RNA sequence: AUUUAUUGGUAGGUGGGGAUGGGUUUGCAAUAUUUCUUUGAUAUUUCAUUGCUUUCGUUAAUAUUGCACUUGUCCCGGCCUAUCAAUGUAUG
Numbered sequence: 001a002u003u004u005a006u007u008g009g010u011a012g013g014u015g016g017g018g019a020u021g022g023g024u025u026u027g028c029a030a031u032a033u034u035u036c037u038u039u040g041a042u043a044u045u046u047c048a049u050u051g052c053u054u055u056c057g058u059u060a061a062u063a064u065u066g067c068a069c070u071u072g073u074c075c076c077g078g079c080c081u082a083u084c085a086a087u088g089u090a091u092g
Stems, first nucleotide, its partner, number of pairs: 004088003009083006016076005022070003027067008

mir-92 microRNA precursor family: a 92-nucleotide sequence from Clunio marinus.
Rfam's curators write: This family represents the microRNA precursor mir-92. Human miR-92 has two predicted hairpin precursor sequences: mir-92-1 on chromosome 13 and mir-92-2 on chromosome X. miR-92 has also been cloned from mouse embryonic stem cells. The mature sequence is excised from the 3' arm of the hairpin.
The family's consensus secondary structure was predicted with PFOLD.
Clan: mir-92 microRNA precursor clan.
Its family is annotated with miRNA-mediated post-transcriptional gene silencing and RISC complex in the Gene Ontology.
Taxonomically the source falls in Clunio (Eukaryota, Ecdysozoa, Diptera, Chironomoidea).